L4-Archaeoglobi ribosomal protein leades: a 94-nucleotide sequence. The family's RNA type in Rfam is cis-regulatory leader.
RNA sequence: CUGAUGGUGGCGCAUGGGUGGAAAUCGGUGUCGAUCGCCCAAUACCCCUCCGCACUGAGGAGAAAUAUGCGGUAGGGAGACGCCUGAACGUCAG
Numbered sequence: 001c002u003g004a005u006g007g008u009g010g011c012g013c014a015u016g017g018g019u020g021g022a023a024a025u026c027g028g029u030g031u032c033g034a035u036c037g038c039c040c041a042a043u044a045c046c047c048c049u050c051c052g053c054a055c056u057g058a059g060g061a062g063a064a065a066u067a068u069g070c071g072g073u074a075g076g077g078a079g080a081c082g083c084c085u086g087a088a089c090g091u092c093a094g
Base pairs, nucleotide, nucleotide: 001094002093003092004091005090009084010083011082012081015041016040017039018038024035025034026033027032046077047076048075049074050072051071052070053069054068